[Rfam]
RNA sequence: AUUCUUUCGCAGAGGCUAUAUCAUAGCCUAUGAGGCCUAGCCGAGGCGUGAUCAUUGCUGGUUGAAAACUUUACCCAAUACCCCGCCGAGAUGGCUUGAAAUACAGUCAGCUCUGGCAAUUUUUGACAGCCUCCUAGAAGG
Dot-bracket structure: ...................(((((.(((.....(((...)))..))))))))................................((((((.(((((........))))).))).)))............(((......)))
RNA: U4 spliceosomal RNA